[Rfam]
RNA sequence: AGUCCAGUGAUGAGUUGCUUUACUUUCUGACACCUCGUAUGAAAACUGCAUGUGCAGUCUAACAUUGCAACUCCGAGGCUU
Numbered sequence: 001a002g003u004c005c006a007g008u009g010a011u012g013a014g015u016u017g018c019u020u021u022a023c024u025u026u027c028u029g030a031c032a033c034c035u036c037g038u039a040u041g042a043a044a045a046c047u048g049c050a051u052g053u054g055c056a057g058u059c060u061a062a063c064a065u066u067g068c069a070a071c072u073c074c075g076a077g078g079c080u081u
Stems, first nucleotide, its partner, number of pairs: 001080002004078002045058005
A member of the RNA family "Small nucleolar RNA SNORD60" from Nannospalax galili, 81 nucleotides long. The organism belongs to Nannospalax, within Eukaryota. Clan: SNORD60 clan. Rfam 15.1 lists 825 matches to the family in 373 species.